[Rfam]
RNA sequence: AGAUGAGAGAAACACCCCGCUCGCAGGAGACUGCGGGCGACGCCGGGACGGAGCCUCCCCAGCCCCGUUCCGCACGUGCCCUCGCGCACACCGCCGGAGCUUCGGGCUCCGGGACUCCUCACCGAUCGGA
Numbered sequence: 001a002g003a004u005g006a007g008a009g010a011a012a013c014a015c016c017c018c019g020c021u022c023g024c025a026g027g028a029g030a031c032u033g034c035g036g037g038c039g040a041c042g043c044c045g046g047g048a049c050g051g052a053g054c055c056u057c058c059c060c061a062g063c064c065c066c067g068u069u070c071c072g073c074a075c076g077u078g079c080c081c082u083c084g085c086g087c088a089c090a091c092c093g094c095c096g097g098a099g100c101u102u103c104g105g106g107c108u109c110c111g112g113g114a115c116u117c118c119u120c121a122c123c124g125a126u127c128g129g130a
Stems, first nucleotide, its partner, number of pairs: 004121004009117002018039009044072004049067003053063002076089004094112008122129002
A member of the RNA family "Streptomyces RNA 5676" from Streptomyces clavuligerus, 130 nucleotides long.
The base pairs follow the family's consensus structure.
Rfam describes the family as follows. Identified by deep sequencing of transcriptome at the end of exponential growth phase. Appears longer on northern blot than sequencing transcript. This indicates processing step. Streptomyces specific.
On this family, see Vockenhuber et al., RNA Biol 2011: "Deep sequencing-based identification of small non-coding RNAs in Streptomyces coelicolor".
The family's RNA type in Rfam is small RNA.